[Rfam]
Rfam assigns this 390-nucleotide part of an RNA from uncultured bacterium AD249-B8 to the family "Bacterial large subunit ribosomal RNA". Pairs were carried over by alignment from the consensus structure, which is taken from published work. The sequence is in the family's curated seed alignment.
RNA sequence: GAUAAGGCCUGUGAGAAUCAGGCCCGCCGGAAUCCCAAGGUUUCCUGGGGAAGGUUCGUCCGCCCAGGGUUAGUCGGCCCCUAAGCAGAGGCCGAAAGGCGUACGCGAUGGGAAACAGGUUCAAUAUUCCUGUACCGGUACGUUGGCGUUUGAGCGAUGGAGGGACGCAGAAAGCUAGGUCAGCCACCCUUUGGUUUGGGUGGUCCAAGCCCGUAGGCAGUCCUGGUAGGAAAAUCCGCCGGGGCAAUGCUGAGAGGUGAUGGGACACAGCGUCUUCGGACAAAGUGGAUUGAUUGAUGCUACACUGCCGAGAAAAGCUUCUAAGCAAGUCAGCGAACCGACCGUACCGUAAACCGACACAGGUGGGAUGGUAGAGAAUACCAAGGCGCG
Numbered sequence: 001g002a003u004a005a006g007g008c009c010u011g012u013g014a015g016a017a018u019c020a021g022g023c024c025c026g027c028c029g030g031a032a033u034c035c036c037a038a039g040g041u042u043u044c045c046u047g048g049g050g051a052a053g054g055u056u057c058g059u060c061c062g063c064c065c066a067g068g069g070u071u072a073g074u075c076g077g078c079c080c081c082u083a084a085g086c087a088g089a090g091g092c093c094g095a096a097a098g099g100c101g102u103a104c105g106c107g108a109u110g111g112g113a114a115a116c117a118g119g120u121u122c123a124a125u126a127u128u129c130c131u132g133u134a135c136c137g138g139u140a141c142g143u144u145g146g147c148g149u150u151u152g153a154g155c156g157a158u159g160g161a162g163g164g165a166c167g168c169a170g171a172a173a174g175c176u177a178g179g180u181c182a183g184c185c186a187c188c189c190u191u192u193g194g195u196u197u198g199g200g201u202g203g204u205c206c207a208a209g210c211c212c213g214u215a216g217g218c219a220g221u222c223c224u225g226g227u228a229g230g231a232a233a234a235u236c237c238g239c240c241g242g243g244g245c246a247a248u249g250c251u252g253a254g255a256g257g258u259g260a261u262g263g264g265a266c267a268c269a270g271c272g273u274c275u276u277c278g279g280a281c282a283a284a285g286u287g288g289a290u291u292g293a294u295u296g297a298u299g300c301u302a303c304a305c306u307g308c309c310g311a312g313a314a315a316a317g318c319u320u321c322u323a324a325g326c327a328a329g330u331c332a333g334c335g336a337a338c339c340g341a342c343c344g345u346a347c348c349g350u351a352a353a354c355c356g357a358c359a360c361a362g363g364u365g366g367g368a369u370g371g372u373a374g375a376g377a378a379u380a381c382c383a384a385g386g387c388g389c390g
Stems, first nucleotide, its partner, number of pairs: 006024006025388004033368004039348002044068006053061002075344003080111002085106002089102001091100003115133005136340004141335006154326002159321004167308004173301003178295005183204006205263002209258003216251003221244007229237002266287001272281003354363002370382004